[Rfam]
RNA sequence: UAAAUUCUUCGGGGUCAGGUGCAAUUCCUAACCGGCGGUAAUAGCCCGCGAGCGUAAGCAGAUCUGGUGAGAUUCCAGAGCCGACAGUUAAAGUCUGGAUGGAAGAAGAGAUUU
Numbered sequence: 001u002a003a004a005u006u007c008u009u010c011g012g013g014g015u016c017a018g019g020u021g022c023a024a025u026u027c028c029u030a031a032c033c034g035g036c037g038g039u040a041a042u043a044g045c046c047c048g049c050g051a052g053c054g055u056a057a058g059c060a061g062a063u064c065u066g067g068u069g070a071g072a073u074u075c076c077a078g079a080g081c082c083g084a085c086a087g088u089u090a091a092a093g094u095c096u097g098g099a100u101g102g103a104a105g106a107a108g109a110g111a112u113u114u
Stems, first nucleotide, its partner, number of pairs: 003112001005110006017029003031094002033083002035049004044081002052059002063079005085097003

Rfam assigns this 114-nucleotide RNA sequence from Orenia marismortui to the family "FMN riboswitch aptamer (RFN element)".
The family's consensus secondary structure is taken from published work.
Taxonomically the source falls in Orenia (Bacteria, Bacillati, Bacillota, Halobacteroidaceae).